[Rfam]
RNA: mir-210 microRNA precursor family
RNA sequence: GAAGUCCAAAGCAGCUGCUGGCCACUGCACAAGAUUAGUCAAGUUUAUACUCUUGUGCGUGUGACAGCGGCUAUUGCGGGCAUUUCAUUGGCUGCG
Dot-bracket structure: ...((((..(..((((((((.(((.((((((.((................)).)))))))).).))))))))..)..))))...............